RNA sequence: AAGCGAAGAAGUAAGGUUUGUUGUGCCAGAGGACAGUACCUUACGAGCUUUAUAAGGGUUUGGCAUUUACCACAAUCUGGCUAGAGAAUGCAGACUCUCAAAAGAAAAUGCCAGAG
Numbered sequence: 001a002a003g004c005g006a007a008g009a010a011g012u013a014a015g016g017u018u019u020g021u022u023g024u025g026c027c028a029g030a031g032g033a034c035a036g037u038a039c040c041u042u043a044c045g046a047g048c049u050u051u052a053u054a055a056g057g058g059u060u061u062g063g064c065a066u067u068u069a070c071c072a073c074a075a076u077c078u079g080g081c082u083a084g085a086g087a088a089u090g091c092a093g094a095c096u097c098u099c100a101a102a103a104g105a106a107a108a109u110g111c112c113a114g115a116g
Base pairs, nucleotide, nucleotide: 001050002049003048004047011044012043013042014041015040016039019038020037021036022035023034024033026080027079028078029077063111064110065109084099085098086097087096